[Rfam]
RNA sequence: CCCAGGCCGCUGGCCCGGGCUGUAUCAAUUCGCCCCUUCGGGGCU
Number, nucleotide and partner (000 for none) at each position: 001c019002c018003c017004a000005g015006g014007c013008c012009g000010c000011u000012g008013g007014c006015c005016c000017g003018g002019g001020c000021u000022g000023u000024a000025u000026c000027a000028a000029u000030u000031c000032g044033c043034c042035c041036c040037u000038u000039c000040g036041g035042g034043g033044c032045u000
Source information: A member of the RNA family "Acido-Lenti-1 RNA" from Desulfonema ishimotonii, 45 nucleotides long. Rfam classes the family as a small RNA.